[Rfam]
RNA: Nitrogen stress-induced RNA 9
Organism: Nostoc sp. T09
RNA sequence: ACUGUUAUUCACGUCUGUGAGUGUGGCUAAUUCAAGUUAGUCACUGUUGCUGAUUGUUGGGAAGGUGUACGGAUAACCCUUUUGGGGGUUUUCCUGCAUGAUAGGCAUCUCUUGUAGAUGCCU
Numbered sequence: 001a002c003u004g005u006u007a008u009u010c011a012c013g014u015c016u017g018u019g020a021g022u023g024u025g026g027c028u029a030a031u032u033c034a035a036g037u038u039a040g041u042c043a044c045u046g047u048u049g050c051u052g053a054u055u056g057u058u059g060g061g062a063a064g065g066u067g068u069a070c071g072g073a074u075a076a077c078c079c080u081u082u083u084g085g086g087g088g089u090u091u092u093c094c095u096g097c098a099u100g101a102u103a104g105g106c107a108u109c110u111c112u113u114g115u116a117g118a119u120g121c122c123u
Base pairs, nucleotide, nucleotide: 006065008063009062010061012059013058015056017054018053020051021050022049023044024043025042026041027040028039029038066098067097068096069095071093072092073091076089077088078087079086103123104122105121106120107119108118109117110116